[Rfam]
RNA sequence: ACACAAGGAAGGAGGUGGUUCGAAGAAUGGUAGUUCAACGGACAUGUGAGGUGGCUGUCCGCUAGCGACAGCUGCAAGGUGGAUUCCGCCGCGCGAGCGCCAGCGAAUCCAAAACAGCCACCCGACCCCCGAGCCCCCGGUCUUGUCCGACCGGGCCCGUGCAGGUUCACCCCGCACCGGAAAGCUCGGGGGUCGUUCCGU
Numbered sequence: 001a002c003a004c005a006a007g008g009a010a011g012g013a014g015g016u017g018g019u020u021c022g023a024a025g026a027a028u029g030g031u032a033g034u035u036c037a038a039c040g041g042a043c044a045u046g047u048g049a050g051g052u053g054g055c056u057g058u059c060c061g062c063u064a065g066c067g068a069c070a071g072c073u074g075c076a077a078g079g080u081g082g083a084u085u086c087c088g089c090c091g092c093g094c095g096a097g098c099g100c101c102a103g104c105g106a107a108u109c110c111a112a113a114a115c116a117g118c119c120a121c122c123c124g125a126c127c128c129c130c131g132a133g134c135c136c137c138c139g140g141u142c143u144u145g146u147c148c149g150a151c152c153g154g155g156c157c158c159g160u161g162c163a164g165g166u167u168c169a170c171c172c173c174g175c176a177c178c179g180g181a182a183a184g185c186u187c188g189g190g191g192g193u194c195g196u197u198c199c200g201u
Stems, first nucleotide, its partner, number of pairs: 014059006060105004065100002069097001073093003123195012136155006
Dot-bracket structure: .............((((((..................................))))))((((.((..(...(((...............)))...).)).)))).................((((((((((((.((((((........))))))............................))))))))))))......
RNA: Actinobacteria sRNA Ms_IGR-5
Organism: Nocardia bovistercoris